The family of this 124-nucleotide RNA from Photobacterium profundum is "MtlS RNA". It is one of the family's seed sequences. Taxonomically the source falls in Photobacterium (Bacteria, Pseudomonadota, Gammaproteobacteria, Vibrionaceae).

RNA sequence: UUCCCCGUUUGAUGUUCUAUUUUUAUAUUUUGUUGUAAGUAACGGUUCGCCAAAACCGUCGAUUGCUUAGUACCCAAUUAAUUUACCAUAGAUAUUUAAAUUAGAACUGAUAACGGGUUUUUUG
Numbered sequence: 001u002u003c004c005c006c007g008u009u010u011g012a013u014g015u016u017c018u019a020u021u022u023u024u025a026u027a028u029u030u031u032g033u034u035g036u037a038a039g040u041a042a043c044g045g046u047u048c049g050c051c052a053a054a055a056c057c058g059u060c061g062a063u064u065g066c067u068u069a070g071u072a073c074c075c076a077a078u079u080a081a082u083u084u085a086c087c088a089u090a091g092a093u094a095u096u097u098a099a100a101u102u103a104g105a106a107c108u109g110a111u112a113a114c115g116g117g118u119u120u121u122u123u124g
Base pairs, nucleotide, nucleotide: 004117005116006115007114008113009112014107015106016105017104018103019102021100025097027095028092029091030090032089033088035086036085037084038083043058044057045056046055047054059081061079062078063077064076065075